[Rfam]
The record is a 79-nucleotide RNA sequence from Clupea harengus, which matches "mir-19 microRNA precursor family" in Rfam. The family is grouped with related families in Rfam's "mir-19 clan". It scores 73 bits against the family's covariance model. The literature on the family includes a 2003 paper in Dev Cell by Houbaviy et al., "Embryonic stem cell-specific MicroRNAs".

RNA sequence: GGGCCCGGUGAGUUUUGCUGGUUUGCUUUCAGCGUUUCGCUUUUCUGCUGUGCAAAUCCAUGCAAAACUCGCUGUGCCA
Numbered sequence: 001g002g003g004c005c006c007g008g009u010g011a012g013u014u015u016u017g018c019u020g021g022u023u024u025g026c027u028u029u030c031a032g033c034g035u036u037u038c039g040c041u042u043u044u045c046u047g048c049u050g051u052g053c054a055a056a057u058c059c060a061u062g063c064a065a066a067a068c069u070c071g072c073u074g075u076g077c078c079a
Base pairs, nucleotide, nucleotide: 003077004076006074007073008072009071010070011069012068013067014066015065016064017063018062020059021058022056023055024054025053026052028050031049032048033047
Dot-bracket structure: ..((.(((((((((((((.(((((((.(..(((.............)))).))))).))..))))))))))))).))..